[Rfam]
The record is a 67-nucleotide RNA from Stercorarius parasiticus, which matches "Small nucleolar RNA SNORD24" in Rfam. Pairs were carried over by alignment from the consensus structure, which was predicted with PFOLD. The organism belongs to Stercorarius, within Eukaryota. The match comes from Rfam's covariance-model search (44 bits). The family has 14 seed sequences and 2,843 matches in Rfam 15.1. On this family, see Kiss-Laszlo et al., Cell 1996: "Site-specific ribose methylation of preribosomal RNA: a novel function for small nucleolar RNAs". Rfam classes the family as a C/D-box small nucleolar RNA.
Nucleotides: 067
Base pairs, nucleotide, nucleotide: 001067002066003065004064
Number, partner (000 for none) and nucleotide at each position: 001067u002066g003065c004064a005000a006000a007000u008000g009000a010000u011000g012000c013000u014000g015000a016000c017000u018000u019000u020000u021000u022000g023000c024000c025000a026000u027000c028000u029000a030000a031000a032000u033000a034000a035000c036000a037000c038000u039000u040000g041000a042000u043000g044000a045000c046000a047000a048000c049000c050000a051000c052000c053000a054000a055000g056000a057000u058000c059000g060000c061000u062000g063000a064004u065003g066002c067001g